RNA: IS605-orfB-I RNA
RNA sequence: UCCGGAUAAACUUGUAUCCAUCCAAGAGAAUGGAGUAAGUCACUUUACGGAAUUAAUAUAAGUAAUACAUUUCAGGAUUGCCAAAGACUUACAUAUAAGUGAAAUCCUGAAAUGAUAGGAUAACCGUACGUCCUUCAAUAUUUUAUAUUGUAAAAGUAAUCUUGAAUAACUUUUGUUAAGUUUUCAAGUUACGGAACA
Numbered sequence: 001u002c003c004g005g006a007u008a009a010a011c012u013u014g015u016a017u018c019c020a021u022c023c024a025a026g027a028g029a030a031u032g033g034a035g036u037a038a039g040u041c042a043c044u045u046u047a048c049g050g051a052a053u054u055a056a057u058a059u060a061a062g063u064a065a066u067a068c069a070u071u072u073c074a075g076g077a078u079u080g081c082c083a084a085a086g087a088c089u090u091a092c093a094u095a096u097a098a099g100u101g102a103a104a105u106c107c108u109g110a111a112a113u114g115a116u117a118g119g120a121u122a123a124c125c126g127u128a129c130g131u132c133c134u135u136c137a138a139u140a141u142u143u144u145a146u147a148u149u150g151u152a153a154a155a156g157u158a159a160u161c162u163u164g165a166a167u168a169a170c171u172u173u174u175g176u177u178a179a180g181u182u183u184u185c186a187a188g189u190u191a192c193g194g195a196a197c198a
Stems, first nucleotide, its partner, number of pairs: 001051004006046001008044001010040006017034005022028001068114004073109007087100002090097001117134005124194005129156001136150005161188006168181001